[Rfam]
RNA sequence: AGCUUUUUUCGCCCAAGCGGAGCUCGACCGUAAACUUCGGUAGUCGUGGAUUUCAUCCGCACCUACCGGAACCGCUUCGGGGUCUGGCCAAUCUGCGAAACCUUGACCGCCCACGGCAUCGCGAUUGCCCCG
Numbered sequence: 001a002g003c004u005u006u007u008u009u010c011g012c013c014c015a016a017g018c019g020g021a022g023c024u025c026g027a028c029c030g031u032a033a034a035c036u037u038c039g040g041u042a043g044u045c046g047u048g049g050a051u052u053u054c055a056u057c058c059g060c061a062c063c064u065a066c067c068g069g070a071a072c073c074g075c076u077u078c079g080g081g082g083u084c085u086g087g088c089c090a091a092u093c094u095g096c097g098a099a100a101c102c103u104u105g106a107c108c109g110c111c112c113a114c115g116g117c118a119u120c121g122c123g124a125u126u127g128c129c130c131c132g
Base pairs, nucleotide, nucleotide: 017031018030019029020028078132079131080130081129082128089127090126092124093123095122096121097120098119
RNA: ALIL pseudoknot